[Rfam]
RNA sequence: GGAAAUUUGAGAGGAGCUGUCCUUAGUACGAGAGGACCGGGAUGGACGCACCUCUGGUGUACCAGUUGUUCUGCCAAGAGCAUCGCUGGGUAGCUAAGUGCGGAAGGGAUAAGUGCUGAAGGCAUCUAAGCACGAAGCCCCCCUCAAGAUAAGAUUUCCCAUCGCGUAAGCGAGUAAGACCCCAAGAAGACUACUUGGUUGAUAGGCCUAGGGUGUAAGUGCAGCAAUGUACUUAGCUGAUAGGUACUAAUAGGUCGAGG
Numbered sequence: 001g002g003a004a005a006u007u008u009g010a011g012a013g014g015a016g017c018u019g020u021c022c023u024u025a026g027u028a029c030g031a032g033a034g035g036a037c038c039g040g041g042a043u044g045g046a047c048g049c050a051c052c053u054c055u056g057g058u059g060u061a062c063c064a065g066u067u068g069u070u071c072u073g074c075c076a077a078g079a080g081c082a083u084c085g086c087u088g089g090g091u092a093g094c095u096a097a098g099u100g101c102g103g104a105a106g107g108g109a110u111a112a113g114u115g116c117u118g119a120a121g122g123c124a125u126c127u128a129a130g131c132a133c134g135a136a137g138c139c140c141c142c143c144u145c146a147a148g149a150u151a152a153g154a155u156u157u158c159c160c161a162u163c164g165c166g167u168a169a170g171c172g173a174g175u176a177a178g179a180c181c182c183c184a185a186g187a188a189g190a191c192u193a194c195u196u197g198g199u200u201g202a203u204a205g206g207c208c209u210a211g212g213g214u215g216u217a218a219g220u221g222c223a224g225c226a227a228u229g230u231a232c233u234u235a236g237c238u239g240a241u242a243g244g245u246a247c248u249a250a251u252a253g254g255u256c257g258a259g260g
Base pairs, nucleotide, nucleotide: 001159002158003157004156005155006154007153008152011145012144013143014142017045018044019043020042021041022040023039047102048101049100050099051098055096056095057094062089063088064087065086066085067082068081069080070079071078072077106140107139108138113133114132115131116130117129162173163172164171175258178256179255180254181253182198183197184196185195186194203249204248205247206245207244208243209242210241212238213237219232220231221230222229223228
Description:
The record is a 260-nucleotide part of an RNA from Alkaliphilus sp. B6464, which matches "Bacterial large subunit ribosomal RNA" in Rfam. Pairs were carried over by alignment from the consensus structure, which is taken from published work. The literature on the family includes a 2001 paper in Science by Yusupov et al., "Crystal structure of the ribosome at 5.5 A resolution".